Annotation: Shown here is a 135-nucleotide sequence from Acanthisitta chloris, a member of the family "Small nucleolar RNA SNORA72". For this family Rfam cites "The family of box ACA small nucleolar RNAs is defined by an evolutionarily conserved secondary structure and ubiquitous sequence elements essential for RNA accumulation" (Ganot et al., Genes Dev, 1997). The base pairs follow the family's consensus structure, which was predicted with PFOLD. It scores 110 bits against the family's covariance model. The organism belongs to Acanthisitta, within Eukaryota. Rfam describes the family as follows. U72 is a member of the H/ACA class of snoRNAs. The snoRNA gene is located in intron 4 of the ribosomal L30 protein gene in human, mouse and chicken. Rfam 15.1 lists 1,541 matches to the family in 547 species. Its family is annotated with RNA processing and nucleolus in the Gene Ontology.
RNA sequence: GUGCGAAUAUUCUCGCUGUCCUGAUAUGUCUGUGAUCAGGGGAGGCUAGACAUUCGCUACAGUAAAGCUAUGCAUUGUGUCCUCCAGGACUAGAUCCCUGCUCUAGUACUGGUUUUGUACAUGCUAGUGACAAGU
Numbered sequence: 001g002u003g004c005g006a007a008u009a010u011u012c013u014c015g016c017u018g019u020c021c022u023g024a025u026a027u028g029u030c031u032g033u034g035a036u037c038a039g040g041g042g043a044g045g046c047u048a049g050a051c052a053u054u055c056g057c058u059a060c061a062g063u064a065a066a067g068c069u070a071u072g073c074a075u076u077g078u079g080u081c082c083u084c085c086a087g088g089a090c091u092a093g094a095u096c097c098c099u100g101c102u103c104u105a106g107u108a109c110u111g112g113u114u115u116u117g118u119a120c121a122u123g124c125u126a127g128u129g130a131c132a133a134g135u
Stems, first nucleotide, its partner, number of pairs: 003057003016044002019041007067128004072124002084112004089107005